The family of this 74-nucleotide sequence from Castor canadensis is "Small nucleolar RNA ZL2". The family's RNA type in Rfam is C/D-box small nucleolar RNA. The match comes from Rfam's covariance-model search (73 bits). Pairs were carried over by alignment from the consensus structure, which was predicted with RNAfold. The source organism's lineage runs through Eukaryota, Metazoa, Eumetazoa, Dipnotetrapodomorpha and Castor.
[Rfam]
RNA sequence: GGCCUCAAGUGAUGGAGAUGUACCCUGGGAGGACUGUGACCAAACUGGGAUGUAUUCAUACUUCUUAUGAGGCC
Numbered sequence: 001g002g003c004c005u006c007a008a009g010u011g012a013u014g015g016a017g018a019u020g021u022a023c024c025c026u027g028g029g030a031g032g033a034c035u036g037u038g039a040c041c042a043a044a045c046u047g048g049g050a051u052g053u054a055u056u057c058a059u060a061c062u063u064c065u066u067a068u069g070a071g072g073c074c
Stems, first nucleotide, its partner, number of pairs: 001074007011064002014062002019058001020055004024049002027046002032041001